[Rfam]
RNA sequence: AAAUGACAAAGGCAAACCUGUUGAAAAACAGGGACGCAAAGCCACGGGUCUAAGGCAGCGCAGACGUGCAAGACUGCUGCUAAGAUAGCCGGGUUGCCAUA
Numbered sequence: 001a002a003a004u005g006a007c008a009a010a011g012g013c014a015a016a017c018c019u020g021u022u023g024a025a026a027a028a029c030a031g032g033g034a035c036g037c038a039a040a041g042c043c044a045c046g047g048g049u050c051u052a053a054g055g056c057a058g059c060g061c062a063g064a065c066g067u068g069c070a071a072g073a074c075u076g077c078u079g080c081u082a083a084g085a086u087a088g089c090c091g092g093g094u095u096g097c098c099a100u101a
Stems, first nucleotide, its partner, number of pairs: 012037002017032006040095004045091003048086003055080006
The record is a 101-nucleotide RNA from Brevibacillus panacihumi, which matches "c-di-GMP-I riboswitch aptamer" in Rfam. NCBI's taxonomy places the organism under Bacteria, Caryophanales, Paenibacillaceae, Brevibacillus, Brevibacillus panacihumi.